[Rfam]
RNA sequence: AGAUCAGGUGAUGAUAUUGGAUUUAUAUCUCACGACGGUCGUCUGAGACACAUCGUGUCAACAGUGAUGCAUUGAUCCAAUGAUUCUGAUGAUU
Number, nucleotide and partner (000 for none) at each position: 001a094002g093003a000004u091005c000006a000007g000008g000009u000010g000011a000012u000013g000014a000015u000016a000017u000018u000019g000020g000021a000022u000023u000024u000025a000026u000027a000028u000029c000030u000031c000032a000033c000034g000035a000036c000037g000038g000039u000040c000041g000042u000043c000044u000045g000046a000047g000048a000049c057050a056051c055052a000053u000054c000055g051056u050057g049058u000059c000060a000061a000062c000063a000064g000065u000066g000067a000068u000069g000070c000071a000072u000073u000074g000075a000076u000077c000078c000079a000080a000081u000082g000083a000084u000085u000086c000087u000088g000089a000090u000091g004092a000093u002094u001